[Rfam]
RNA sequence: GCGCAGAGUAGAAGCGUUCAGCCGCGCGAUGCCCCACGCAUCCAGGCAGGAAAUUGCUCUUUCA
Numbered sequence: 001g002c003g004c005a006g007a008g009u010a011g012a013a014g015c016g017u018u019c020a021g022c023c024g025c026g027c028g029a030u031g032c033c034c035c036a037c038g039c040a041u042c043c044a045g046g047c048a049g050g051a052a053a054u055u056g057c058u059c060u061u062u063c064a
Stems, first nucleotide, its partner, number of pairs: 005060006015049001018051002021047003024043001026041001
A member of the RNA family "Xanthine riboswitch aptamer (NMT1 RNA)" from Variovorax gossypii, 64 nucleotides long. Gene Ontology term of the family: purine nucleobase binding. Lineage of the source: Bacteria > Pseudomonadati > Pseudomonadota > Betaproteobacteria > Variovorax. The literature on the family includes a 2020 paper in RNA by Yu and Breaker, "A bacterial riboswitch class senses xanthine and uric acid to regulate genes associated with purine oxidation". Pairs were carried over by alignment from the consensus structure, which is taken from published work.